[Rfam]
RNA sequence: GCCAGGCCCGGUGGCACAUGCCUGUAGUCUCAGCUACUCAGGAGGCUGAGGCAAGAGGAUCGCUUGAGCCCAGGAGUUCUGGGCUGUAGUGUGCUAUGCUGAUUGGGUGUCCGCACUAUGUUCGGCAUAAUAUAGUGACCUCCUGGGAACAGGGGACCACCAGAUUGCCUAAGGAGAGGUGAACAGGCCCAGGUCGGAAACAGAGCAGGUCAAAACUCCUGUGCUGAUCAGUAGUAGGAUUGCACAUGUGAAUAGUCACUACACUCCCAGCCUGGGCAACAUAGCGCGAUCCCAUCUCUA
Numbered sequence: 001g002c003c004a005g006g007c008c009c010g011g012u013g014g015c016a017c018a019u020g021c022c023u024g025u026a027g028u029c030u031c032a033g034c035u036a037c038u039c040a041g042g043a044g045g046c047u048g049a050g051g052c053a054a055g056a057g058g059a060u061c062g063c064u065u066g067a068g069c070c071c072a073g074g075a076g077u078u079c080u081g082g083g084c085u086g087u088a089g090u091g092u093g094c095u096a097u098g099c100u101g102a103u104u105g106g107g108u109g110u111c112c113g114c115a116c117u118a119u120g121u122u123c124g125g126c127a128u129a130a131u132a133u134a135g136u137g138a139c140c141u142c143c144u145g146g147g148a149a150c151a152g153g154g155g156a157c158c159a160c161c162a163g164a165u166u167g168c169c170u171a172a173g174g175a176g177a178g179g180u181g182a183a184c185a186g187g188c189c190c191a192g193g194u195c196g197g198a199a200a201c202a203g204a205g206c207a208g209g210u211c212a213a214a215a216c217u218c219c220u221g222u223g224c225u226g227a228u229c230a231g232u233a234g235u236a237g238g239a240u241u242g243c244a245c246a247u248g249u250g251a252a253u254a255g256u257c258a259c260u261a262c263a264c265u266c267c268c269a270g271c272c273u274g275g276g277c278a279a280c281a282u283a284g285c286g287c288g289a290u291c292c293c294a295u296c297u298c299u300a
Stems, first nucleotide, its partner, number of pairs: 001046003004023004010017001028043003048298004055291002061286004068277007079270005085263007093256005099250001104248002107245004111238002115235004119230002122227007129166003133162001135160003140155006168174002175220002178217003186211004194203001196201001
Rfam assigns this 300-nucleotide sequence from Rousettus aegyptiacus to the family "Metazoan signal recognition particle RNA". Rfam classes the family as a non-coding RNA gene. A search with the family's covariance model found it, with a score of 212 bits. Rfam describes the family as follows. The signal recognition particle (SRP) is a universally conserved ribonucleoprotein. It is involved in the co-translational targeting of proteins to membranes. The eukaryotic SRP consists of a 300-nucleotide 7S RNA and six proteins: SRPs 72, 68, 54, 19, 14, and 9. Archaeal SRP consists of a 7S RNA and homologues of the eukaryotic SRP19 and SRP54 proteins. Pairs were carried over by alignment from the consensus structure, which is taken from published work.